[Rfam]
RNA sequence: AACCCGUAAGCCGAAAAGGGUAUUAUAGAGUAGGCA
Numbered sequence: 001a002a003c004c005c006g007u008a009a010g011c012c013g014a015a016a017a018g019g020g021u022a023u024u025a026u027a028g029a030g031u032a033g034g035c036a
Stems, first nucleotide, its partner, number of pairs: 002021004010035003
The family of this 36-nucleotide RNA is "DUF805b RNA". Its Rfam clan is "DUF805 clan". It is one of the family's seed sequences.